[Rfam]
The family of this 113-nucleotide RNA sequence from Lentivirus simimdef is "HIV pol-1 stem loop".

RNA sequence: GUUGGCACAGUCUUAGUAGGGCCAACACCUGUUAAUAUUAUUGGAAGAAAUUUUCUGACACAAAUUGGUUGUACUCUAAAUUUUCCAAUAAGUCCUAUUGAAACCAUACCAGU
Numbered sequence: 001g002u003u004g005g006c007a008c009a010g011u012c013u014u015a016g017u018a019g020g021g022c023c024a025a026c027a028c029c030u031g032u033u034a035a036u037a038u039u040a041u042u043g044g045a046a047g048a049a050a051u052u053u054u055c056u057g058a059c060a061c062a063a064a065u066u067g068g069u070u071g072u073a074c075u076c077u078a079a080a081u082u083u084u085c086c087a088a089u090a091a092g093u094c095c096u097a098u099u100g101a102a103a104c105c106a107u108a109c110c111a112g113u
Stems, first nucleotide, its partner, number of pairs: 004110002007107001010104002013101010031059004037053001064089005
Dot-bracket structure: ...((.(..((.((((((((((........((((..(...............)..))))....(((((................)))))..)))))))))).))..).))...
For this family Rfam cites "Evidence of a novel RNA secondary structure in the coding region of HIV-1 pol gene" (Wang et al., RNA, 2008). By type it is a cis-regulatory element. NCBI's taxonomy places the organism under Viruses, Riboviria, Revtraviricetes, Orthoretrovirinae, Lentivirus simimdef.